[Rfam]
RNA sequence: UAGCUGUCGUGGCGCAACGGGAGACGGGCUGCUCUAACCCGCCGUCCACCCAUGCAGUUCUGCUGAGUCAGAACGCACUCGCCCGGUGCCUGGUUCGAAUCCGCGAGUCGCGACCUUGUUAAAGAGGUUCUCCCGCCCUCACGCGAGUAGUCCGUGAAUUGGCGGCGGCGCGCUAAGCAAUGGAGGCGACCCUUGAGGGAAGCAAUUCUGCAGAGACUCCUCCACUCGCGGAUGGCGGCACCAGAUCACACCGGCGGUGCAUCGUGGGUGGGCGACGGGAUCUGGCCUGUCGACUUUUUU
Numbered sequence: 001u002a003g004c005u006g007u008c009g010u011g012g013c014g015c016a017a018c019g020g021g022a023g024a025c026g027g028g029c030u031g032c033u034c035u036a037a038c039c040c041g042c043c044g045u046c047c048a049c050c051c052a053u054g055c056a057g058u059u060c061u062g063c064u065g066a067g068u069c070a071g072a073a074c075g076c077a078c079u080c081g082c083c084c085g086g087u088g089c090c091u092g093g094u095u096c097g098a099a100u101c102c103g104c105g106a107g108u109c110g111c112g113a114c115c116u117u118g119u120u121a122a123a124g125a126g127g128u129u130c131u132c133c134c135g136c137c138c139u140c141a142c143g144c145g146a147g148u149a150g151u152c153c154g155u156g157a158a159u160u161g162g163c164g165g166c167g168g169c170g171c172g173c174u175a176a177g178c179a180a181u182g183g184a185g186g187c188g189a190c191c192c193u194u195g196a197g198g199g200a201a202g203c204a205a206u207u208c209u210g211c212a213g214a215g216a217c218u219c220c221u222c223c224a225c226u227c228g229c230g231g232a233u234g235g236c237g238g239c240a241c242c243a244g245a246u247c248a249c250a251c252c253g254g255c256g257g258u259g260c261a262u263c264g265u266g267g268g269u270g271g272g273c274g275a276c277g278g279g280a281u282c283u284g285g286c287c288u289g290u291c292g293a294c295u296u297u298u299u300u
Stems, first nucleotide, its partner, number of pairs: 003013002019298005025292001027291003031287001034285003039279002041276001043274012057074006076259002080256002083254006090244005095238003099233009130168002133165005139157005145152002172178002181224006192215003199208003
A member of the RNA family "Fungal signal recognition particle RNA" from Uncinocarpus reesii, 300 nucleotides long. The source organism's lineage runs through Eukaryota, Fungi, Dikarya, Ascomycota and Uncinocarpus reesii. The family's RNA type in Rfam is non-coding RNA gene. For this family Rfam cites "Towards the structure of the mammalian signal recognition particle" (Wild et al., Curr Opin Struct Biol, 2002).